[Rfam]
RNA sequence: GGAAUUAAGCAGAAGCAGCCCGCUUCUCGCCUAAGUUGACGUAAUGUCUCUGGGCAGAUAAUGAACGGUUUAAAUCAGGAUAUCUGAUUUAUAGCGGGGGUCUGCAAUGCAGUCCUCCGCUUUUUUCUGCAA
Numbered sequence: 001g002g003a004a005u006u007a008a009g010c011a012g013a014a015g016c017a018g019c020c021c022g023c024u025u026c027u028c029g030c031c032u033a034a035g036u037u038g039a040c041g042u043a044a045u046g047u048c049u050c051u052g053g054g055c056a057g058a059u060a061a062u063g064a065a066c067g068g069u070u071u072a073a074a075u076c077a078g079g080a081u082a083u084c085u086g087a088u089u090u091a092u093a094g095c096g097g098g099g100g101u102c103u104g105c106a107a108u109g110c111a112g113u114c115c116u117c118c119g120c121u122u123u124u125u126u127c128u129g130c131a132a
Stems, first nucleotide, its partner, number of pairs: 011027006029055003038048003095119006102112003

The record is a 132-nucleotide sequence from Loigolactobacillus rennini, which matches "Ribosomal protein L20 leader" in Rfam.
This family is a putative r-protein leader autoregulatory structure found in B. subtilis and other low-GC Gram-positive bacteria. It is located in the 5' untranslated regions of mRNAs encoding initiation factor 3 followed by ribosomal proteins L35 and L20 (infC-rpmI-rplT).
Rfam links the family to the GO term regulation of gene expression.
Pairs were carried over by alignment from the consensus structure, which was predicted with CMfinder.
The organism belongs to Loigolactobacillus rennini, within Bacteria.